[Rfam]
RNA sequence: UCUUCAUUUCACGUGAUCUCUCACCGGUCAGAGUGACGAGGGAGUGCGUAAAAUGAAGAGA
Numbered sequence: 001u002c003u004u005c006a007u008u009u010c011a012c013g014u015g016a017u018c019u020c021u022c023a024c025c026g027g028u029c030a031g032a033g034u035g036a037c038g039a040g041g042g043a044g045u046g047c048g049u050a051a052a053a054u055g056a057a058g059a060g061a
Base pairs, nucleotide, nucleotide: 001059002058003057004056005055006054007053012048013047014046015045017043019041020040021039022038
Dot-bracket structure: (((((((....((((.(.((((...............)))).).))))....)))))))..
The record is a 61-nucleotide sequence from Pristionchus pacificus, which matches "mir-8364 microRNA precursor family" in Rfam. The match comes from Rfam's covariance-model search (69 bits). Its family is annotated with miRNA-mediated post-transcriptional gene silencing and RISC complex in the Gene Ontology.